[Rfam]
RNA sequence: AUAAAAAAACCUGCAGAUAUCACAUCUGCAGGUCUCUUUGUUUUCAAUAAAGAAAACAAAGAGGCAAAGGGAGAGGAGAAACCGGAGAUAACUUAUGGGGAAGUGUAAGUCUUCUCCGUGU
Numbered sequence: 001a002u003a004a005a006a007a008a009a010c011c012u013g014c015a016g017a018u019a020u021c022a023c024a025u026c027u028g029c030a031g032g033u034c035u036c037u038u039u040g041u042u043u044u045c046a047a048u049a050a051a052g053a054a055a056a057c058a059a060a061g062a063g064g065c066a067a068a069g070g071g072a073g074a075g076g077a078g079a080a081a082c083c084g085g086a087g088a089u090a091a092c093u094u095a096u097g098g099g100g101a102a103g104u105g106u107a108a109g110u111c112u113u114c115u116c117c118g119u120g121u
Base pairs, nucleotide, nucleotide: 009033010032011031012030013029014028015027016026017025034071035070036069037068038067040057041056042055043054044053045052083118084117085116086115088112091110092109093108094107095106
A member of the RNA family "ylbH leader" from Cerasibacillus terrae, 121 nucleotides long. On this family, see Barrick et al., Proc Natl Acad Sci U S A 2004: "New RNA motifs suggest an expanded scope for riboswitches in bacterial genetic control". A search with the family's covariance model found it, with a score of 77 bits. This family is a putative regulatory RNA structure that is found upstream of the ylbH gene in B. subtilis and related low GC Gram-positive bacteria. Its family is annotated with regulation of gene expression in the Gene Ontology.